[Rfam]
RNA: Potassium channel RNA editing signal
Organism: Sphaeramia orbicularis
RNA sequence: GUUGGCUACGGCGACAUGAGGCCAGUAACGGUCGGGGGGAAGAUCGUGGGCUCUCUCUGCGCCAUCGCCGGUGUCCUGACCAUCGCGCUGCCGGUGCCCGUCAUCGUAUCAAAC
Numbered sequence: 001g002u003u004g005g006c007u008a009c010g011g012c013g014a015c016a017u018g019a020g021g022c023c024a025g026u027a028a029c030g031g032u033c034g035g036g037g038g039g040a041a042g043a044u045c046g047u048g049g050g051c052u053c054u055c056u057c058u059g060c061g062c063c064a065u066c067g068c069c070g071g072u073g074u075c076c077u078g079a080c081c082a083u084c085g086c087g088c089u090g091c092c093g094g095u096g097c098c099c100g101u102c103a104u105c106g107u108a109u110c111a112a113a114c
Base pairs, nucleotide, nucleotide: 001114002113005110007108008107009106010105011104013102014101015100018097021095022094037077038076039075040074049063050062051061